[Rfam]
About this RNA: This 109-nucleotide RNA sequence from Yersinia mollaretii belongs to the Rfam family "RprA RNA". A reference for the family is Majdalani et al. (2001), "Regulation of RpoS by a novel small RNA: the characterization of RprA", Mol Microbiol. Rfam describes the family as follows. Translational regulation of the stationary phase sigma factor RpoS is mediated by the formation of a double-stranded RNA stem-loop structure in the upstream region of the rpoS messenger RNA, occluding the translation initiation site. The organism belongs to Yersinia mollaretii, within Bacteria. Gene Ontology term of the family: mRNA binding. Rfam classes the family as a small RNA.
RNA sequence: AGGCGUUUAAAUAAAUCAUUUCAUAAUGACUUAUUUAAAUAUCUGUAAUCGAAUAUACGUAUUGCUGUGUGUAGUCUUUGCCUGUCACCUAAGACGGGCUUUUUUUUUG
Numbered sequence: 001a002g003g004c005g006u007u008u009a010a011a012u013a014a015a016u017c018a019u020u021u022c023a024u025a026a027u028g029a030c031u032u033a034u035u036u037a038a039a040u041a042u043c044u045g046u047a048a049u050c051g052a053a054u055a056u057a058c059g060u061a062u063u064g065c066u067g068u069g070u071g072u073a074g075u076c077u078u079u080g081c082c083u084g085u086c087a088c089c090u091a092a093g094a095c096g097g098g099c100u101u102u103u104u105u106u107u108u109g
Stems, first nucleotide, its partner, number of pairs: 002022002005019001032047002063071003080099007